[Rfam]
RNA sequence: CUAAAACUGCAUAGGCAACCGUAGACAGCAGGUGCUGACAUUGUUAGCUGAAUUAUCCUGCCGAGGGAGCAUUCGCUUCUCGAAGACCUUUUCCGCUUAACCGGAUUAAGCAAUCGUGAGAUGAGUCAGCCCCGGCAUUCCUUCGUCGGGGUUUUGCUUUCUAUGG
Numbered sequence: 001c002u003a004a005a006a007c008u009g010c011a012u013a014g015g016c017a018a019c020c021g022u023a024g025a026c027a028g029c030a031g032g033u034g035c036u037g038a039c040a041u042u043g044u045u046a047g048c049u050g051a052a053u054u055a056u057c058c059u060g061c062c063g064a065g066g067g068a069g070c071a072u073u074c075g076c077u078u079c080u081c082g083a084a085g086a087c088c089u090u091u092u093c094c095g096c097u098u099a100a101c102c103g104g105a106u107u108a109a110g111c112a113a114u115c116g117u118g119a120g121a122u123g124a125g126u127c128a129g130c131c132c133c134g135g136c137a138u139u140c141c142u143u144c145g146u147c148g149g150g151g152u153u154u155u156g157c158u159u160u161c162u163a164u165g166g
Base pairs, nucleotide, nucleotide: 028061029060030059031058032057034048035047036046037045038044130151131150132149133148134147135146136145
Ribosomal protein L10 leader: a 166-nucleotide RNA from Synechococcales cyanobacterium T60_A2020_003. Gene Ontology term of the family: regulation of gene expression. Rfam classes the family as a cis-regulatory leader.